A member of the RNA family "Alphaproteobacterial sRNA ar7" from Rhizobium sp. BK251, 143 nucleotides long. A search with the family's covariance model found it, with a score of 114 bits. By type it is a small RNA. The literature on the family includes a 2012 paper in RNA Biol by del Val et al., "A survey of sRNA families in alpha-proteobacteria". The source organism's lineage runs through Bacteria, Pseudomonadota, Hyphomicrobiales, Rhizobiaceae and Rhizobium.
RNA sequence: CACCGGCGUUGAUCGCGCCGCGGGUCUGAAGCCGGCCUGUCCCCCGCCUGCUCAGACUUGGACAAAGGCCUUAUCCCCCUCUCCGGGCCUUUGUCCCCAUUUUUAAGCCGCCAUGGUCCACCUCCAGGCCAUGGCGGUUUUGU
Numbered sequence: 001c002a003c004c005g006g007c008g009u010u011g012a013u014c015g016c017g018c019c020g021c022g023g024g025u026c027u028g029a030a031g032c033c034g035g036c037c038u039g040u041c042c043c044c045c046g047c048c049u050g051c052u053c054a055g056a057c058u059u060g061g062a063c064a065a066a067g068g069c070c071u072u073a074u075c076c077c078c079c080u081c082u083c084c085g086g087g088c089c090u091u092u093g094u095c096c097c098c099a100u101u102u103u104u105a106a107g108c109c110g111c112c113a114u115g116g117u118c119c120a121c122c123u124c125c126a127g128g129c130c131a132u133g134g135c136g137g138u139u140u141u142g143u
Stems, first nucleotide, its partner, number of pairs: 025056005034048003060096011105139001108137011